Rfam assigns this 109-nucleotide RNA from Shewanella woodyi to the family "Tryptophan operon leader". Taxonomically the source falls in Shewanella woodyi (Bacteria, Pseudomonadati, Pseudomonadota, Shewanellaceae). A search with the family's covariance model found it, with a score of 49 bits. The base pairs follow the family's consensus structure, which is taken from published work. About the family: At least 6 amino acid operons are known to be regulated by attenuation. In each a leader sequence of 150-200 bp is found upstream of the first gene in the operon. This leader sequence can assume two different secondary structures known as the terminator and the anti-terminator structure.
RNA sequence: AUCAAUUGGUGGUGGCACUUCCCUAACUAGCGGGUGGUGUGAAACUCUGUGCUCAUGUAAAAGAGACAAGAUUCAACAAUAAGCCCGCAUAGAUUGCGGGCUUUUUUGU
Number, nucleotide and partner (000 for none) at each position: 001a000002u000003c000004a000005a000006u000007u000008g000009g045010u044011g000012g000013u000014g000015g040016c039017a038018c037019u036020u000021c034022c033023c032024u000025a000026a000027c000028u000029a000030g000031c000032g023033g022034g021035u000036g019037g018038u017039g016040u015041g000042a000043a000044a010045c009046u000047c000048u000049g000050u000051g000052c000053u000054c000055a000056u000057g000058u000059a000060a000061a000062a000063g000064a000065g000066a000067c000068a000069a000070g000071a000072u000073u000074c000075a000076a000077c000078a000079a000080u000081a000082a102083g101084c100085c099086c098087g097088c096089a094090u000091a000092g000093a000094u089095u000096g088097c087098g086099g085100g084101c083102u082103u000104u000105u000106u000107u000108g000109u000